[Rfam]
Nucleotides: 126
Base pairs, nucleotide, nucleotide: 006114007113009111010110011076012075013074014073017031018030019029020028021027039069040068041067042066082107083106084105085104088101089100090099091098
Number, partner (000 for none) and nucleotide at each position: 001000c002000g003000c004000u005000g006114u007113u008000c009111c010110a011076a012075g013074g014073g015000g016000u017031g018030c019029c020028u021027c022000g023000c024000g025000a026000g027021g028020a029019g030018g031017c032000u033000g034000a035000g036000a037000u038000u039069c040068c041067g042066c043000c044000g045000g046000u047000c048000g049000g050000g051000c052000u053000u054000u055000u056000g057000u058000c059000c060000g061000a062000c063000a064000g065000c066042g067041c068040g069039g070000u071000g072000a073014c074013c075012c076011u077000c078000c079000g080000a081000a082107c083106c084105u085104g086000a087000u088101c089100c090099g091098g092000g093000u094000c095000a096000u097000g098091c099090c100089g101088g102000c103000g104085u105084a106083g107082g108000g109000a110010u111009g112000c113007g114006g115000g116000a117000c118000a119000u120000c121000g122000g123000g124000c125000g126000g